[Rfam]
RNA sequence: GGCAAAACGAGGAUAAUUUUUUAAUGGCUGAAUUUGAUGUGGAAUUCCUUUAUCAUUUCAUGGUCUUCAAAUAUCCCUGAUUGCU
Numbered sequence: 001g002g003c004a005a006a007a008c009g010a011g012g013a014u015a016a017u018u019u020u021u022u023a024a025u026g027g028c029u030g031a032a033u034u035u036g037a038u039g040u041g042g043a044a045u046u047c048c049u050u051u052a053u054c055a056u057u058u059c060a061u062g063g064u065c066u067u068c069a070a071a072u073a074u075c076c077c078u079g080a081u082u083g084c085u
Base pairs, nucleotide, nucleotide: 001085002084003083004082005081